[Rfam]
Background:
Shown here is a 112-nucleotide RNA from Leucogyrophana pinastri, a member of the family "tRNA". By type it is a transfer RNA. Pairs were carried over by alignment from the consensus structure, which is taken from published work.
RNA sequence: GGCCAGAUGGCCGAGCGGUCCAAGGCGUGUGACUCAAGCUUACUAAGCUUGCCUGCUUAAGCGGGUUUCUCAUCUUCGUAUGAAGGCAGGAGUUCGAAUCUCCUUCUGGUCA
Numbered sequence: 001g002g003c004c005a006g007a008u009g010g011c012c013g014a015g016c017g018g019u020c021c022a023a024g025g026c027g028u029g030u031g032a033c034u035c036a037a038g039c040u041u042a043c044u045a046a047g048c049u050u051g052c053c054u055g056c057u058u059a060a061g062c063g064g065g066u067u068u069c070u071c072a073u074c075u076u077c078g079u080a081u082g083a084a085g086g087c088a089g090g091a092g093u094u095c096g097a098a099u100c101u102c103c104u105u106c107u108g109g110u111c112a
Stems, first nucleotide, its partner, number of pairs: 001111007010026003029043004088104005